[Rfam]
The record is a 141-nucleotide RNA sequence from Rostratula benghalensis, which matches "Small nucleolar RNA SNORA5" in Rfam. By type it is an H/ACA-box small nucleolar RNA. Rfam's curators write: ACA5 is a member of the H/ACA class of snoRNA that guide the sites of modification of uridines to pseudouridines. The family's consensus secondary structure was predicted with RNAfold. The family is grouped with related families in Rfam's "SNORA5 clan". It scores 78 bits against the family's covariance model.
RNA sequence: UGCAGCCCCGUCAAAUUCGGUCCCUGCCUCUUCCGUGGUGGGGACCGGCCCAACGGCUGCCACAGUGACUUCUGUGGUCCCUGAGCCCCGUGUCCCCUUCCCGUGGGACACUGGGGGAUAAAAAUCACACCACGGACACCU
Numbered sequence: 001u002g003c004a005g006c007c008c009c010g011u012c013a014a015a016u017u018c019g020g021u022c023c024c025u026g027c028c029u030c031u032u033c034c035g036u037g038g039u040g041g042g043g044a045c046c047g048g049c050c051c052a053a054c055g056g057c058u059g060c061c062a063c064a065g066u067g068a069c070u071u072c073u074g075u076g077g078u079c080c081c082u083g084a085g086c087c088c089c090g091u092g093u094c095c096c097c098u099u100c101c102c103g104u105g106g107g108a109c110a111c112u113g114g115g116g117g118a119u120a121a122a123a124a125u126c127a128c129a130c131c132a133c134g135g136a137c138a139c140c141u
Base pairs, nucleotide, nucleotide: 002060003059004058005057018047019046020045021044022043023042024041025040026039027038028037074133075132076131077130078129086117087116088115090111091110